[Rfam]
RNA sequence: GUGGCGCGGGGGCUGCGCUCGCCGGAGCAGCGUGCUGGGACUCUGUCCCGCGCGCUGCUUCGUCGAGCGUGGCGGCCGACGCCUC
Numbered sequence: 001g002u003g004g005c006g007c008g009g010g011g012g013c014u015g016c017g018c019u020c021g022c023c024g025g026a027g028c029a030g031c032g033u034g035c036u037g038g039g040a041c042u043c044u045g046u047c048c049c050g051c052g053c054g055c056u057g058c059u060u061c062g063u064c065g066a067g068c069g070u071g072g073c074g075g076c077c078g079a080c081g082c083c084u085c
Base pairs, nucleotide, nucleotide: 001085003083004082005081006080007078008077012073013072014071015070016069017068018067019066020065021064023062024061025060027058028057029056030055031054032053033052034051035050037048038047039046
The record is an 85-nucleotide RNA from Brachypodium distachyon, which matches "MIR9657 microRNA precursor family" in Rfam. Lineage of the source: Eukaryota > Liliopsida > Pooideae > Brachypodieae > Brachypodium.